Archaeal large subunit ribosomal RNA: a 269-nucleotide part of an RNA from Promethearchaeum syntrophicum.
[Rfam]
RNA sequence: GAGCUCAUGUUAGUGGCGAGAUUAAGGAGAUAACCUCCGUAGUCGCAGGGAAACCAAUAUGCUUGUAAGUUCGAUUCGUCGAGCCCAGAAGCAUGGUGUGAAAGCGCCUAAAGUCACUGAUGUGAUGCCCGAAGUCGGACGAUCUAGGCCUGGUCAGGAUGAAGUGCUUCGAAAGGAGCAUGGAGGUCCGAUAUCGUUCUGACGUGCAAUUCGUUGAGUUGAACUGGGUCUAGGCGGAAAAGCCAAAUCUAGUCCGAGGAUGGCUGGUU
Number, nucleotide and partner (000 for none) at each position: 001g000002a000003g000004c000005u125006c124007a123008u122009g121010u120011u119012a118013g117014u116015g115016g114017c113018g000019a000020g044021a043022u042023u041024a000025a000026g038027g037028a036029g035030a000031u000032a000033a000034c000035c029036u028037c027038c026039g000040u000041a023042g022043u021044c020045g000046c000047a000048g055049g054050g000051a000052a000053a000054c049055c048056a000057a000058u000059a000060u000061g092062c091063u090064u089065g000066u000067a000068a000069g084070u083071u082072c081073g080074a079075u000076u000077c000078g000079u074080c073081g072082a071083g070084c069085c000086c000087a000088g000089a064090a063091g062092c061093a000094u000095g108096g107097u106098g105099u000100g000101a000102a000103a000104g000105c098106g097107c096108c095109u000110a000111a000112a000113g017114u016115c015116a014117c013118u012119g011120a010121u009122g008123u007124g006125a005126u000127g000128c267129c266130c000131g264132a000133a000134g000135u257136c256137g255138g254139a253140c252141g000142a000143u000144c233145u232146a231147g230148g229149c228150c227151u226152g225153g224154u223155c221156a000157g189158g188159a187160u186161g000162a000163a000164g181165u180166g179167c178168u177169u176170c175171g000172a000173a000174a000175g170176g169177a168178g167179c166180a165181u164182g000183g000184a000185g000186g160187u159188c158189c157190g000191a000192u000193a000194u217195c216196g215197u000198u000199c213200u000201g212202a211203c000204g000205u000206g000207c000208a000209a000210u000211u202212c201213g199214u000215u196216g195217a194218g000219u000220u000221g155222a000223a154224c153225u152226g151227g150228g149229u148230c147231u146232a145233g144234g000235c000236g244237g243238a000239a000240a000241a000242g000243c237244c236245a000246a000247a000248u000249c000250u000251a000252g140253u139254c138255c137256g136257a135258g000259g000260a000261u000262g000263g000264c131265u000266g129267g128268u000269u000

Taxonomically the source falls in Promethearchaeum (Archaea, Promethearchaeota, Promethearchaeales, Promethearchaeaceae).